A member of the RNA family "Group II catalytic intron D1-D4-2" from Bradyrhizobium sp. LMTR 3, 117 nucleotides long. The base pairs follow the family's consensus structure. Rfam 15.1 lists 1,231 matches to the family in 625 species. Rfam links the family to the GO term Group II intron splicing. Taxonomically the source falls in Bradyrhizobium (Bacteria, Pseudomonadota, Alphaproteobacteria, Nitrobacteraceae). Rfam describes the family as follows. Group II introns are found in rRNA, tRNA and mRNA of organelles in fungi, plants and protists, and also in mRNA in bacteria.
Nucleotides: 117
Base pairs, nucleotide, nucleotide: 002014003013004012005011016041017040018039019038020037021036023034024033025032026031045117046116048091049090050089051088052087053086054080055079057077058076059075061073062072063071064070097114099112100111101110102109
Number, partner (000 for none) and nucleotide at each position: 001000c002014a003013g004012g005011g006000a007000u008000g009000g010000c011005c012004c013003c014002u015000c016041g017040g018039g019038a020037u021036c022000g023034a024033c025032u026031u027000u028000c029000a030000g031026g032025a033024g034023u035000a036021g037020g038019u039018c040017u041016c042000a043000a044000a045117u046116c047000a048091c049090u050089u051088u052087a053086a054080g055079c056000g057077g058076c059075u060000u061073c062072g063071c064070c065000u066000a067000a068000g069000a070064g071063g072062c073061g074000c075059g076058g077057u078000c079055g080054u081000g082000a083000g084000c085000g086053u087052u088051g089050a090049a091048g092000c093000u094000a095000a096000c097114g098000g099112u100111c101110g102109g103000g104000a105000a106000u107000a108000c109102c110101c111100g112099a113000a114097c115000g116046g117045a